[Rfam]
RNA sequence: UGCCUCUUUUUGUUAAAGAUAAUUUGCUUUUUGGUAGUGCCCAUCUCCUAUCAGUCAGGGAUGAAGCAAUCCCUUGUUCAUCCCCAGCUUGGCUUUUGAUCUAUGCCUGGUUCAUGCCUUGGACACAUGG
Dot-bracket structure: (.(((...((.(....((...(((...........)))......))....).))..))).).............((((((..........(((...(((.(((....))).))).))).)))))).....
Background: This 130-nucleotide RNA from Gorilla gorilla belongs to the Rfam family "Small nucleolar RNA SNORA48". NCBI's taxonomy places the organism under Eukaryota, Teleostomi, Haplorrhini, Hominoidea, Gorilla gorilla. On this family, see Ofengand and Bakin, J Mol Biol 1997: "Mapping to nucleotide resolution of pseudouridine residues in large subunit ribosomal RNAs from representative eukaryotes, prokaryotes, archaebacteria, mitochondria and chloroplasts". About the family: The snoRNA ACA 48 has been identified to guide pseudouridylation of the residue U3797 in the 28S rRNA subunit. The family's consensus secondary structure was predicted with RNAalifold. The family has 24 seed sequences and 2,109 matches in Rfam 15.1.